[Rfam]
RNA: c-di-AMP riboswitch aptamer (ydaO/yuaA leader)
Organism: Alkaliphilus oremlandii
RNA sequence: AUAUACAUAGCGCUGAAUUCUUUUAAGAAGCGGGGGAACCAUUAUUUUGGGGUGAAUCUCAUAUCUAUGAGACGGGUCAACUCUUUCGAUCCGAAUCCGUCAGCUAACCUCGUAAGCGUUGAAAGGGGAGAC
Numbered sequence: 001a002u003a004u005a006c007a008u009a010g011c012g013c014u015g016a017a018u019u020c021u022u023u024u025a026a027g028a029a030g031c032g033g034g035g036g037a038a039c040c041a042u043u044a045u046u047u048u049g050g051g052g053u054g055a056a057u058c059u060c061a062u063a064u065c066u067a068u069g070a071g072a073c074g075g076g077u078c079a080a081c082u083c084u085u086u087c088g089a090u091c092c093g094a095a096u097c098c099g100u101c102a103g104c105u106a107a108c109c110u111c112g113u114a115a116g117c118g119u120u121g122a123a124a125g126g127g128g129a130g131a132c
Base pairs, nucleotide, nucleotide: 011118012117013116014115018029019028020027030113031112032111033110034109035108040049041048050098051097052096058071059070060069061068074092075091076090077089